L2-Alphaproteobacteria ribosomal protein leader: a 93-nucleotide RNA from Citreicella sp. SE45.
NCBI's taxonomy places the organism under Bacteria, Pseudomonadota, Rhodobacterales, Roseobacteraceae, Citreicella.
On this family, see Eckert and Weinberg, BMC Microbiol 2020: "Discovery of 20 novel ribosomal leader candidates in bacteria and archaea".

[Rfam]
RNA sequence: GGCCACCUGCAGGCAGCCUGUCCCCGCGACAGCAGACCGAGGGGGCUGUAACAUAGGGUGGAUUCUCCACCCGUCUGCAAACGGAAGACAGAA
Numbered sequence: 001g002g003c004c005a006c007c008u009g010c011a012g013g014c015a016g017c018c019u020g021u022c023c024c025c026g027c028g029a030c031a032g033c034a035g036a037c038c039g040a041g042g043g044g045g046c047u048g049u050a051a052c053a054u055a056g057g058g059u060g061g062a063u064u065c066u067c068c069a070c071c072c073g074u075c076u077g078c079a080a081a082c083g084g085a086a087g088a089c090a091g092a093a
Base pairs, nucleotide, nucleotide: 001047002046003045004044006043007042008041056072057071058070059069060068061067